Source information:
The family of this 61-nucleotide RNA sequence from Sphingomonas lenta is "terC RNA".
RNA sequence: CGUGCGGACCGGGCCCCUCUGGCGGCGGCUUUUCAGCCCCCCGCGAUGUCGGACCGCAUCG
Numbered sequence: 001c002g003u004g005c006g007g008a009c010c011g012g013g014c015c016c017c018u019c020u021g022g023c024g025g026c027g028g029c030u031u032u033u034c035a036g037c038c039c040c041c042c043g044c045g046a047u048g049u050c051g052g053a054c055c056g057c058a059u060c061g
Stems, first nucleotide, its partner, number of pairs: 006055002009052004022044004027038003
The match comes from Rfam's covariance-model search (58 bits). Lineage of the source: Bacteria > Pseudomonadati > Alphaproteobacteria > Sphingomonadaceae > Sphingomonas.